[Rfam]
The record is a 417-nucleotide sequence from Caldisalinibacter kiritimatiensis, which matches "Group I catalytic intron" in Rfam.
The source organism's lineage runs through Bacteria, Bacillota, Tissierellales, Thermohalobacteraceae and Caldisalinibacter.
RNA sequence: CUUCUUAGGUAAUGCUGGAUAAGGGUCCCUUGAAGGGUAACCUUUAAGUGCAAAUCGGGUGAAUUGCUGGAACUUCCUAAAGCUCUGCUUCCUACAACGUAAUCCGAAAGGAUAGGCGUGACAGGUUAAAAAGCAGCAGAGAUGUAACAAUGGAUAAUCAGCAGCCAAGCUCCUGUUCCGAAAGGAUGGAGAAGGUUCAACGACUAGGACGAACGGCCUACGGCAAUUGAAAAUUUAAAAUUGAAAAUGUAAAAUCAAAAAACUUCAAUUGUACGGCUAUGAGGUCCGUAGGGGUUAGAGGUUCUCCGAAGUGCCCGGCAACCGAGUUAAUUUACAAUUAACAAUGCACAAUUUACAAUGGGAAAACAGUUAAUAAUUCGGUUGAAGAUAUAGUCUGGCAAGUAUCGAAAGAUAUUU
Numbered sequence: 001c002u003u004c005u006u007a008g009g010u011a012a013u014g015c016u017g018g019a020u021a022a023g024g025g026u027c028c029c030u031u032g033a034a035g036g037g038u039a040a041c042c043u044u045u046a047a048g049u050g051c052a053a054a055u056c057g058g059g060u061g062a063a064u065u066g067c068u069g070g071a072a073c074u075u076c077c078u079a080a081a082g083c084u085c086u087g088c089u090u091c092c093u094a095c096a097a098c099g100u101a102a103u104c105c106g107a108a109a110g111g112a113u114a115g116g117c118g119u120g121a122c123a124g125g126u127u128a129a130a131a132a133g134c135a136g137c138a139g140a141g142a143u144g145u146a147a148c149a150a151u152g153g154a155u156a157a158u159c160a161g162c163a164g165c166c167a168a169g170c171u172c173c174u175g176u177u178c179c180g181a182a183a184g185g186a187u188g189g190a191g192a193a194g195g196u197u198c199a200a201c202g203a204c205u206a207g208g209a210c211g212a213a214c215g216g217c218c219u220a221c222g223g224c225a226a227u228u229g230a231a232a233a234u235u236u237a238a239a240a241u242u243g244a245a246a247a248u249g250u251a252a253a254a255u256c257a258a259a260a261a262a263c264u265u266c267a268a269u270u271g272u273a274c275g276g277c278u279a280u281g282a283g284g285u286c287c288g289u290a291g292g293g294g295u296u297a298g299a300g301g302u303u304c305u306c307c308g309a310a311g312u313g314c315c316c317g318g319c320a321a322c323c324g325a326g327u328u329a330a331u332u333u334a335c336a337a338u339u340a341a342c343a344a345u346g347c348a349c350a351a352u353u354u355a356c357a358a359u360g361g362g363a364a365a366a367c368a369g370u371u372a373a374u375a376a377u378u379c380g381g382u383u384g385a386a387g388a389u390a391u392a393g394u395c396u397g398g399c400a401a402g403u404a405u406c407g408a409a410a411g412a413u414a415u416u417u
Stems, first nucleotide, its partner, number of pairs: 002025006034043003055318004060313002065163006075154003164196002171189002177184001200396001202395005321382009402415005
It scores 103 bits against the family's covariance model.